The record is a 587-nucleotide part of an RNA from Sutterella sp. AM11-39, which matches "Bacterial large subunit ribosomal RNA" in Rfam. It scores 2759 bits against the family's covariance model. Rfam 15.1 lists 51,934 matches to the family in 10,816 species. The base pairs follow the family's consensus structure, which is taken from published work.
[Rfam]
Nucleotides: 587
Base pairs, nucleotide, nucleotide: 001583002582003581004580005579006578007577008576010575011574012573014570015569022404023403024402025401027400028399029396030395031394032393033392035201036200037199038198042193043192045190046189047188048187051154052153053152054151055150056149057148058147059146060145061144063142064141065140066139068137078136079135080134081133082132085119086118087117095112096111097110098109099108100107101106158181159180160179162178163177164176165175166174167173204216205215206214207213217239218238219237220236221235222234240385242342243341248300249299250298251297252296253295254280255279257275258274259273260272261271262270281290282289305328306327307326308325311322312321313320330339331338332337353379354378355377356376357375358374359373361372362371413454414453415452417451418448419447420446421445422444423443424442428438429437465540466538467537468536469535470532471529472528473527474526475525478503479502481498482497483496484495485494486493505519506518507517508516509515546564547563548562549561550559551558552557
Number, partner (000 for none) and nucleotide at each position: 001583c002582c003581c004580g005579c006578g007577g008576c009000u010575a011574g012573a013000c014570g015569g016000a017000a018000a019000g020000a021000c022404c023403c024402c025401a026000u027400g028399a029396a030395c031394c032393u033392u034000u035201a036200c037199u038198g039000u040000a041000g042193c043192u044000u045190u046189g047188c048187a049000u050000u051154g052153g053152a054151c055150u056149u057148u058147g059146a060145a061144c062000c063142g064141a065140u066139u067000u068137g069000u070000g071000u072000a073000g074000g075000a076000u077000a078136g079135g080134c081133g082132g083000g084000a085119g086118g087117c088000a089000g090000a091000g092000a093000a094000a095112g096111c097110g098109c099108a100107a101106c102000g103000c104000c105000a106101g107100u108099u109098g110097u111096g112095c113000c114000g115000g116000a117087g118086c119085c120000g121000a122000c123000g124000u125000u126000g127000a128000a129000a130000u131000a132082c133081c134080g135079c136078c137068c138000u139066g140065a141064u142063u143000u144061g145060u146059u147058u148057g149056a150055g151054g152053u153052u154051c155000u156000a157000a158181c159180c160179g161000c162178g163177a164176c165175c166174c167173g168000u169000a170000a171000g172000c173167c174166g175165g176164g177163u178162c179160c180159g181158g182000g183000a184000c185000c186000g187048u188047g189046c190045a191000u192043g193042g194000c195000a196000g197000g198038c199037a200036g201035u202000u203000u204216g205215a206214c207213u208000g209000g210000g211000g212000c213207g214206g215205u216204c217239u218238c219237c220236u221235c222234c223000u224000a225000a226000a227000g228000g229000g230000u231000a232000a233000c234222g235221g236220a237219g238218g239217a240385g241000u242342a243341c244000a245000a246000a247000g248300g249299u250298a251297c252296g253295c254280u255279a256000g257275g258274u259273a260272c261271g262270g263000u264000c265000g266000g267000a268000a269000a270262u271261c272260g273259u274258g275257c276000u277000g278000a279255u280254a281290g282289u283000g284000c285000a286000a287000a288000g289282g290281c291000a292000a293000a294000a295253g296252c297251g298250u299249g300248c301000u302000u303000g304000a305328c306327u307326g308325c309000g310000a311322g312321a313320c314000c315000g316000a317000c318000a319000a320313g321312u322311c323000g324000a325308g326307c327306a328305g329000a330339u331338g332337c333000g334000a335000a336000a337332g338331c339330a340000g341243g342242u343000c344000u345000u346000a347000g348000u349000g350000a351000u352000c353379c354378g355377g356376u357375g358374g359373c360000u361372c362371u363000g364000u365000a366000u367000g368000g369000a370000a371362g372361g373359g374358c375357c376356a377355u378354c379353g380000c381000u382000c383000a384000a385240c386000g387000g388000a389000u390000a391000a392033a393032a394031g395030g396029u397000a398000c399028u400027c401025u402024g403023g404022g405000g406000a407000u408000a409000a410000c411000a412000g413454g414453c415452u416000g417451a418448u419447a420446c421445c422444g423443c424442c425000c426000a427000a428438g429437a430000g431000u432000u433000c434000a435000u436000a437429u438428c439000g440000a441000c442424g443423g444422c445421g446420g447419u448418g449000u450000u451417u452415g453414g454413c455000a456000c457000c458000u459000c460000g461000a462000u463000g464000u465540c466538g467537g468536c469535u470532c471529a472528u473527c474526u475525c476000a477000u478503c479502c480000u481498g482497g483496g484495g485494c486493u487000g488000u489000a490000g491000c492000c493486g494485g495484u496483c497482c498481c499000a500000a501000g502479g503478g504000u505519a506518u507517g508516g509515c510000u511000g512000u513000u514000c515509g516508c517507c518506a519505u520000u521000u522000a523000a524000a525475g526474a527473g528472g529471u530000a531000c532470g533000u534000g535469a536468g537467c538466u539000g540465g541000g542000u543000u544000u545000a546564a547563a548562a549561c550559g551558u552557c553000g554000u555000g556000a557552g558551a559550c560000a561549g562548u563547u564546u565000g566000g567000u568000c569015c570014c571000u572000a573012u574011c575010u576008g577007c578006c579005g580004u581003g582002g583001g584000c585000g586000c587000u